A member of the RNA family "S10-Clostridia ribosomal protein leader" from Clostridium intestinale, 76 nucleotides long.
It scores 38 bits against the family's covariance model.
Lineage of the source: Bacteria > Bacillati > Bacillota > Clostridium > Clostridium intestinale.
RNA sequence: AUACAGCGAUGAUUCAAGAGGUUGCCGGACUUCCGGGUAAUUCUUGUUGAGCACGUUAGAAUCUAGAAUUCGACGA
Numbered sequence: 001a002u003a004c005a006g007c008g009a010u011g012a013u014u015c016a017a018g019a020g021g022u023u024g025c026c027g028g029a030c031u032u033c034c035g036g037g038u039a040a041u042u043c044u045u046g047u048u049g050a051g052c053a054c055g056u057u058a059g060a061a062u063c064u065a066g067a068a069u070u071c072g073a074c075g076a
Stems, first nucleotide, its partner, number of pairs: 015046002018043003025036004054075004059071004
Overview
The family's RNA type in Rfam is cis-regulatory leader.